A member of the RNA family "PyrR binding site" from Desulfosporosinus cupriresistens, 102 nucleotides long. The base pairs follow the family's consensus structure, which is taken from published work.
RNA sequence: UUACCCUUUAAAUGCUAUCCAGAGAGAUAGCCAAGGGGCGAGUGGAUUAGGCUAUGCCUUUUAAUAUAUCCUCUCCCCCUAGGGGGAGAGGAUAUAUUUUAU
Numbered sequence: 001u002u003a004c005c006c007u008u009u010a011a012a013u014g015c016u017a018u019c020c021a022g023a024g025a026g027a028u029a030g031c032c033a034a035g036g037g038g039c040g041a042g043u044g045g046a047u048u049a050g051g052c053u054a055u056g057c058c059u060u061u062u063a064a065u066a067u068a069u070c071c072u073c074u075c076c077c078c079c080u081a082g083g084g085g086g087a088g089a090g091g092a093u094a095u096a097u098u099u100u101a102u
Base pairs, nucleotide, nucleotide: 004037005036006035007034008033014031015030016029017028018027019026041061042060044058045057064097065096066095067094068093069092070091071090072089073088074087075086076085077084

Rfam links the family to the GO terms pyrimidine nucleobase transport and pyrimidine nucleobase biosynthetic process. The source organism's lineage runs through Bacteria, Bacillati, Clostridia, Eubacteriales and Desulfosporosinus. The family's RNA type in Rfam is cis-regulatory element. The match comes from Rfam's covariance-model search (57 bits).